The family of this 117-nucleotide RNA sequence from Noviherbaspirillum galbum is "Betaproteobacteria-1 RNA".

[Rfam]
RNA sequence: CGCCGGCGUGGACGAGGUGCCGACCACCAGCACGCCGGGGAAACCGAUUCUGGGGGGAAGUUCUGAGAAAUCGGCGCGCUGGCGAAGGCAGAGGCGUGGAACGAAAGUCUGCCGGGC
Numbered sequence: 001c002g003c004c005g006g007c008g009u010g011g012a013c014g015a016g017g018u019g020c021c022g023a024c025c026a027c028c029a030g031c032a033c034g035c036c037g038g039g040g041a042a043a044c045c046g047a048u049u050c051u052g053g054g055g056g057g058a059a060g061u062u063c064u065g066a067g068a069a070a071u072c073g074g075c076g077c078g079c080u081g082g083c084g085a086a087g088g089c090a091g092a093g094g095c096g097u098g099g100a101a102c103g104a105a106a107g108u109c110u111g112c113c114g115g116g117c
Stems, first nucleotide, its partner, number of pairs: 001040001003038008027053004044074006060102004075098006087113006
The base pairs follow the family's consensus structure, which is taken from published work. The source organism's lineage runs through Bacteria, Pseudomonadati, Pseudomonadota, Burkholderiales and Noviherbaspirillum. A search with the family's covariance model found it, with a score of 88 bits. It is annotated as a small RNA.